[Rfam]
RNA: Small nucleolar RNA snoR100
RNA sequence: UAAUGAAAGUAGCUUGGUACUGUGCACAGAGAUUGAAUCUUUCGAUGGAACGACAUGUCUGCUCUCUCGGAGCUUGGCUUUGAUGUGUGGGCCUGGUUUAGUUCUACAUUU
Numbered sequence: 001u002a003a004u005g006a007a008a009g010u011a012g013c014u015u016g017g018u019a020c021u022g023u024g025c026a027c028a029g030a031g032a033u034u035g036a037a038u039c040u041u042u043c044g045a046u047g048g049a050a051c052g053a054c055a056u057g058u059c060u061g062c063u064c065u066c067u068c069g070g071a072g073c074u075u076g077g078c079u080u081u082g083a084u085g086u087g088u089g090g091g092c093c094u095g096g097u098u099u100a101g102u103u104c105u106a107c108a109u110u111u
Base pairs, nucleotide, nucleotide: 012025013024015022047094048093051090057084058083059082061078062077063076